[Rfam]
RNA sequence: GUAUACUAUAAAAGCUGUCCUAAGACAGCAGGUGUCCAAAAGGACAGAAAAGACAGAUUGUCUUGCCUGCCGAGGAAAGGUGCGGAUAUCCGUGUAUAUUCACGCGGUUAACAGGCUCUUUCCAUCCGUGGAAAGAGCCGUUUUUGUUUGCGC
Dot-bracket structure: ...........................(((((((((......)))...................))))))...........................................((((((((((......))))))))))..............
Numbered sequence: 001g002u003a004u005a006c007u008a009u010a011a012a013a014g015c016u017g018u019c020c021u022a023a024g025a026c027a028g029c030a031g032g033u034g035u036c037c038a039a040a041a042g043g044a045c046a047g048a049a050a051a052g053a054c055a056g057a058u059u060g061u062c063u064u065g066c067c068u069g070c071c072g073a074g075g076a077a078a079g080g081u082g083c084g085g086a087u088a089u090c091c092g093u094g095u096a097u098a099u100u101c102a103c104g105c106g107g108u109u110a111a112c113a114g115g116c117u118c119u120u121u122c123c124a125u126c127c128g129u130g131g132a133a134a135g136a137g138c139c140g141u142u143u144u145u146g147u148u149u150g151c152g153c
Stems, first nucleotide, its partner, number of pairs: 028070006034045003114139010